Small nucleolar RNA snoR26: a 93-nucleotide RNA sequence from Dioscorea zingiberensis. The family's consensus secondary structure was predicted with WAR.
[Rfam]
RNA sequence: UGGGCAUCGAUGAUGUAUAAGCUCCUUUUGUUAUCCUUGCUCUUUGAUUUCCUAUGAUGAAAUUCUAGGGGGAAUUUGUAGACUGAGAUGCCU
Numbered sequence: 001u002g003g004g005c006a007u008c009g010a011u012g013a014u015g016u017a018u019a020a021g022c023u024c025c026u027u028u029u030g031u032u033a034u035c036c037u038u039g040c041u042c043u044u045u046g047a048u049u050u051c052c053u054a055u056g057a058u059g060a061a062a063u064u065c066u067a068g069g070g071g072g073a074a075u076u077u078g079u080a081g082a083c084u085g086a087g088a089u090g091c092c093u
Stems, first nucleotide, its partner, number of pairs: 002093007